[Rfam]
RNA sequence: GGGUUAUUCCUAUGCGCUUACGCGCGGGUUUAAUUAAGAUUUGCACCUCUAUCAAACCGGAUAACCCCACCUUCUGGCAAGGCCUUACUGUACGAUCAAGUCGGAACUAAUACAAUUCAGCCCAUCCUUCGGAAUAAUCAAUUAUUCCAGUCGAUUCUUCUGAAUCGGAAAAGUCU
Numbered sequence: 001g002g003g004u005u006a007u008u009c010c011u012a013u014g015c016g017c018u019u020a021c022g023c024g025c026g027g028g029u030u031u032a033a034u035u036a037a038g039a040u041u042u043g044c045a046c047c048u049c050u051a052u053c054a055a056a057c058c059g060g061a062u063a064a065c066c067c068c069a070c071c072u073u074c075u076g077g078c079a080a081g082g083c084c085u086u087a088c089u090g091u092a093c094g095a096u097c098a099a100g101u102c103g104g105a106a107c108u109a110a111u112a113c114a115a116u117u118c119a120g121c122c123c124a125u126c127c128u129u130c131g132g133a134a135u136a137a138u139c140a141a142u143u144a145u146u147c148c149a150g151u152c153g154a155u156u157c158u159u160c161u162g163a164a165u166c167g168g169a170a171a172a173g174u175c176u
Base pairs, nucleotide, nucleotide: 001067002066003065004064005063006062007061009060010059014025015024016023017022027058028057029056030055031054033052034051037048038047076157077156081152082151084150085149090107091106093103094102095101096100109146110145111144112143114142
RNA: Proteobacterial sRNA psRNA2